[Rfam]
RNA: permuted transfer-messenger RNA
Organism: Aristophania vespae
RNA sequence: GGCGAUAAACGGUAGAUGGAAUAAGUGUUGUGGACCCGGGGCAGUACCCGGCGUCUCCACCAAAUUUCUUCCACUUUUGGGGACGAAACAGGCUCGACACGCAUGGUAAAGAUCUAUCUUUUGCCCGGCAUUGUACCGCCGUUAUCGGGCUAAACUUACAAGUGCCAACGAUAAUACUGAGGUGCUCGCUGUCGCAGCAUAA
Numbered sequence: 001g002g003c004g005a006u007a008a009a010c011g012g013u014a015g016a017u018g019g020a021a022u023a024a025g026u027g028u029u030g031u032g033g034a035c036c037c038g039g040g041g042c043a044g045u046a047c048c049c050g051g052c053g054u055c056u057c058c059a060c061c062a063a064a065u066u067u068c069u070u071c072c073a074c075u076u077u078u079g080g081g082g083a084c085g086a087a088a089c090a091g092g093c094u095c096g097a098c099a100c101g102c103a104u105g106g107u108a109a110a111g112a113u114c115u116a117u118c119u120u121u122u123g124c125c126c127g128g129c130a131u132u133g134u135a136c137c138g139c140c141g142u143u144a145u146c147g148g149g150c151u152a153a154a155c156u157u158a159c160a161a162g163u164g165c166c167a168a169c170g171a172u173a174a175u176a177c178u179g180a181g182g183u184g185c186u187c188g189c190u191g192u193c194g195c196a197g198c199a200u201a202a
Stems, first nucleotide, its partner, number of pairs: 001125005014115004026103003030100003036051005052085007126141004